azaaromatic riboswitch aptamer (yjdF RNA): a 101-nucleotide RNA from Acetobacterium bakii.
A search with the family's covariance model found it, with a score of 90 bits.

RNA sequence: UUAAGUGAAGAAAAAAACACAGUUCUGGUUGGUAGUCCAGACGCAGUGCAAUACUGUCAGUAACCUGCCUCCUAAGGUUGUCCGUUCUUUGUAAAUAUUUC
Numbered sequence: 001u002u003a004a005g006u007g008a009a010g011a012a013a014a015a016a017a018c019a020c021a022g023u024u025c026u027g028g029u030u031g032g033u034a035g036u037c038c039a040g041a042c043g044c045a046g047u048g049c050a051a052u053a054c055u056g057u058c059a060g061u062a063a064c065c066u067g068c069c070u071c072c073u074a075a076g077g078u079u080g081u082c083c084g085u086u087c088u089u090u091g092u093a094a095a096u097a098u099u100u101c
Base pairs, nucleotide, nucleotide: 005092006091007090008089009088010087011086022042023041025040026039027038028037043057044056045055046054047053048052067078068077069076070075